[Rfam]
RNA sequence: UGGCACCCAAUGUGGGGCUUGGAUACUGGGGGCAUCGUGAGGGAGACGAUGGACAAAGGAAGGAGUGCACUUGCUAAAUCUCAAGCAAUUCGGAGACGCACCAUGGGAGCCUGCCGCGACCGAACCGAAGAUAAGUCAAGCCGUCCGAAUCAUGGGGCAAGAAUUAGGCCAACAUCAGAUUUAUGUUAUACAGUUAAGGGAAGCUCUCAAGACAAGAGGAGUAAAGGUUAAGACUGAGGGUUUACUUCAUUUCUUUGAUUUUUGUAAAGGACAUUUGUCCCU
Numbered sequence: 001u002g003g004c005a006c007c008c009a010a011u012g013u014g015g016g017g018c019u020u021g022g023a024u025a026c027u028g029g030g031g032g033c034a035u036c037g038u039g040a041g042g043g044a045g046a047c048g049a050u051g052g053a054c055a056a057a058g059g060a061a062g063g064a065g066u067g068c069a070c071u072u073g074c075u076a077a078a079u080c081u082c083a084a085g086c087a088a089u090u091c092g093g094a095g096a097c098g099c100a101c102c103a104u105g106g107g108a109g110c111c112u113g114c115c116g117c118g119a120c121c122g123a124a125c126c127g128a129a130g131a132u133a134a135g136u137c138a139a140g141c142c143g144u145c146c147g148a149a150u151c152a153u154g155g156g157g158c159a160a161g162a163a164u165u166a167g168g169c170c171a172a173c174a175u176c177a178g179a180u181u182u183a184u185g186u187u188a189u190a191c192a193g194u195u196a197a198g199g200g201a202a203g204c205u206c207u208c209a210a211g212a213c214a215a216g217a218g219g220a221g222u223a224a225a226g227g228u229u230a231a232g233a234c235u236g237a238g239g240g241u242u243u244a245c246u247u248c249a250u251u252u253c254u255u256u257g258a259u260u261u262u263u264g265u266a267a268a269g270g271a272c273a274u275u276u277g278u279c280c281c282u
Stems, first nucleotide, its partner, number of pairs: 006031003012026003035049004087132001089130001090128002097122002102118001104116003140158002144156004166207002168204002216256006225243005267282001269280004

This 282-nucleotide RNA from Nannospalax galili belongs to the Rfam family "Mason-Pfizer monkey virus packaging signal". Lineage of the source: Eukaryota > Craniata > Dipnotetrapodomorpha > Tetrapoda > Nannospalax.